[Rfam]
RNA sequence: CUCUUAUCGAGAGUUGGGAGAGGGAAUUGGCCCGUUGACCCCAACAGCAACCGACCGUAAUACCAUUGUGAAAUGGGGCGCAGCAGCAAGCGCCGGGGCUUAUCGCUCCGCAAGGCACGGUGCUAAAUCCGUCAGAAAGCAAAUGCUUUUUGGGAGAUAAGAG
Numbered sequence: 001c002u003c004u005u006a007u008c009g010a011g012a013g014u015u016g017g018g019a020g021a022g023g024g025a026a027u028u029g030g031c032c033c034g035u036u037g038a039c040c041c042c043a044a045c046a047g048c049a050a051c052c053g054a055c056c057g058u059a060a061u062a063c064c065a066u067u068g069u070g071a072a073a074u075g076g077g078g079c080g081c082a083g084c085a086g087c088a089a090g091c092g093c094c095g096g097g098g099c100u101u102a103u104c105g106c107u108c109c110g111c112a113a114g115g116c117a118c119g120g121u122g123c124u125a126a127a128u129c130c131g132u133c134a135g136a137a138a139g140c141a142a143a144u145g146c147u148u149u150u151u152g153g154g155a156g157a158u159a160a161g162a163g
Base pairs, nucleotide, nucleotide: 001163002162003161004160005159006158007157008156013045015043016042017041018040022033023032024031028131029130030129046124047123048122049121051120052119053116055114128155133152134151135150136149137148138147

Rfam assigns this 163-nucleotide sequence from Bacillus sp. SJS to the family "SAM riboswitch aptamer (S box leader)". A search with the family's covariance model found it, with a score of 69 bits. NCBI's taxonomy places the organism under Bacteria, Bacillota, Caryophanales, Bacillaceae, Bacillus.